Source information:
This 85-nucleotide sequence from Platysternon megacephalum belongs to the Rfam family "Small nucleolar RNA SNORD100". The family is grouped with related families in Rfam's "SNORD100 clan". Rfam classes the family as a C/D-box small nucleolar RNA. The source organism's lineage runs through Eukaryota, Metazoa, Sarcopterygii, Cryptodira and Platysternon. The family has 26 seed sequences and 838 matches in Rfam 15.1.

[Rfam]
RNA sequence: GGCAUCUGUGGUGAAAAUUUGGCUCCCUCUACUGAAACAAGUGAGGAAAGAUGCCUGAAUUGUUACCCAAAUCUUCUGAGAUGCA
Numbered sequence: 001g002g003c004a005u006c007u008g009u010g011g012u013g014a015a016a017a018u019u020u021g022g023c024u025c026c027c028u029c030u031a032c033u034g035a036a037a038c039a040a041g042u043g044a045g046g047a048a049a050g051a052u053g054c055c056u057g058a059a060u061u062g063u064u065a066c067c068c069a070a071a072u073c074u075u076c077u078g079a080g081a082u083g084c085a
Base pairs, nucleotide, nucleotide: 002084003083004082005081006080